[Rfam]
Notes:
The record is an 85-nucleotide RNA sequence from Clostridium cellulovorans, which matches "pan motif" in Rfam. NCBI's taxonomy places the organism under Bacteria, Bacillota, Clostridia, Eubacteriales, Clostridium cellulovorans. The family's RNA type in Rfam is cis-regulatory element.

RNA sequence: UGGGUGGUAUCGAGGAUGAACUACACCAGAGAAAUAAUUACUUCUGAAAUCUCUAGCUCAUAUCCUAAAGGAAUGGGACUACAUU
Numbered sequence: 001u002g003g004g005u006g007g008u009a010u011c012g013a014g015g016a017u018g019a020a021c022u023a024c025a026c027c028a029g030a031g032a033a034a035u036a037a038u039u040a041c042u043u044c045u046g047a048a049a050u051c052u053c054u055a056g057c058u059c060a061u062a063u064c065c066u067a068a069a070g071g072a073a074u075g076g077g078a079c080u081a082c083a084u085u
Stems, first nucleotide, its partner, number of pairs: 001028003004024005010019002054081003057077005063072003